Rfam assigns this 89-nucleotide RNA sequence from Sphingomonas sp. IBVSS2 to the family "Glycine riboswitch aptamer".
RNA sequence: CAGGCACGCGCGGGAGAGUGUGGGGCAACCCACCGCCGAAGGAGCAACCGCCCCGGAAUCUCUCAGGCACCAGGGACCGCGCGGGCACG
Numbered sequence: 001c002a003g004g005c006a007c008g009c010g011c012g013g014g015a016g017a018g019u020g021u022g023g024g025g026c027a028a029c030c031c032a033c034c035g036c037c038g039a040a041g042g043a044g045c046a047a048c049c050g051c052c053c054c055g056g057a058a059u060c061u062c063u064c065a066g067g068c069a070c071c072a073g074g075g076a077c078c079g080c081g082c083g084g085g086c087a088c089g
Stems, first nucleotide, its partner, number of pairs: 007083007020033004035068003038064002042062003048056002
Description:
Its Rfam clan is "Glycine riboswitch clan". Pairs were carried over by alignment from the consensus structure.